This 84-nucleotide RNA from Pongo abelii belongs to the Rfam family "mir-548 microRNA precursor family". NCBI's taxonomy places the organism under Eukaryota, Opisthokonta, Metazoa, Sarcopterygii, Pongo. The match comes from Rfam's covariance-model search (91 bits). The base pairs follow the family's consensus structure, which was predicted with WAR.

[Rfam]
RNA sequence: GUUUAGGUUGGUGCAAAAGUAACUGUGGGUUUUGCCUUUGAAAGUAAUGGCAAAACCCACAAUUACUUUUGCAUCAACCUAAUU
Numbered sequence: 001g002u003u004u005a006g007g008u009u010g011g012u013g014c015a016a017a018a019g020u021a022a023c024u025g026u027g028g029g030u031u032u033u034g035c036c037u038u039u040g041a042a043a044g045u046a047a048u049g050g051c052a053a054a055a056c057c058c059a060c061a062a063u064u065a066c067u068u069u070u071g072c073a074u075c076a077a078c079c080u081a082a083u084u
Stems, first nucleotide, its partner, number of pairs: 001084001003082020024061013038047003